[Rfam]
RNA sequence: AUUGCAGGUUCAAGGCCAUAGGAGAAGCGUUCAUGAUGGGGCCUGUCAGAUUCUAAUGAAUCUGUGAAUUCUGCU
Numbered sequence: 001a002u003u004g005c006a007g008g009u010u011c012a013a014g015g016c017c018a019u020a021g022g023a024g025a026a027g028c029g030u031u032c033a034u035g036a037u038g039g040g041g042c043c044u045g046u047c048a049g050a051u052u053c054u055a056a057u058g059a060a061u062c063u064g065u066g067a068a069u070u071c072u073g074c075u
Base pairs, nucleotide, nucleotide: 014043015042016041017040020075021074023072024071025070026069028038029037047064048063049062050061051060052059053058
Dot-bracket structure: .............((((..[[.[[[[.((.......)).))))...(((((((....)))))))....]]]].]]
About this RNA: The record is a 75-nucleotide RNA sequence from Alligator mississippiensis, which matches "Mammalian CPEB3 ribozyme" in Rfam. The base pairs follow the family's consensus structure, which is taken from published work. The organism belongs to Alligator, within Eukaryota.